[Rfam]
RNA sequence: AAUAAAGCUUGUUAGGUGAGGUUACUGGUUGAACAGAGGCUGCUGCCCGGAAAUGUCGAAAGACACCAAUGGGUAGAGCAGGCGUAGUCGGAUUAAGGCUUCGCAUAAGGCAGCUUUCCGGAAUCCGGAAUAAGUCAACCUGAACUAAAACUCUACGAGGAGCUUCAUG
Numbered sequence: 001a002a003u004a005a006a007g008c009u010u011g012u013u014a015g016g017u018g019a020g021g022u023u024a025c026u027g028g029u030u031g032a033a034c035a036g037a038g039g040c041u042g043c044u045g046c047c048c049g050g051a052a053a054u055g056u057c058g059a060a061a062g063a064c065a066c067c068a069a070u071g072g073g074u075a076g077a078g079c080a081g082g083c084g085u086a087g088u089c090g091g092a093u094u095a096a097g098g099c100u101u102c103g104c105a106u107a108a109g110g111c112a113g114c115u116u117u118c119c120g121g122a123a124u125c126c127g128g129a130a131u132a133a134g135u136c137a138a139c140c141u142g143a144a145c146u147a148a149a150a151c152u153c154u155a156c157g158a159g160g161a162g163c164u165u166c167a168u169g
Stems, first nucleotide, its partner, number of pairs: 005165006011156002013096001015152003020146003025142001027140006039114005045074005054065004082104003087099003116130003
Dot-bracket structure: ....(((((((([.(((..(((..(.((((((......(((((.(((((....((((....))))....))))).......(((..(((......])))..))).....))))).(((.........)))....)))))).).)))...)))..))...))))))....